Rfam assigns this 60-nucleotide sequence from Mus musculus to the family "mir-5615 microRNA precursor family". It is one of the family's seed sequences. The source organism's lineage runs through Eukaryota, Vertebrata, Mammalia, Mus and Mus. Its family is annotated with miRNA-mediated post-transcriptional gene silencing and RISC complex in the Gene Ontology.
RNA sequence: CUUGGUUGUUUUCUGAGACAGAAAAUGAGACUCUUUUCUGUCUCAGAAAACAACCAAGGA
Numbered sequence: 001c002u003u004g005g006u007u008g009u010u011u012u013c014u015g016a017g018a019c020a021g022a023a024a025a026u027g028a029g030a031c032u033c034u035u036u037u038c039u040g041u042c043u044c045a046g047a048a049a050a051c052a053a054c055c056a057a058g059g060a
Stems, first nucleotide, its partner, number of pairs: 001058025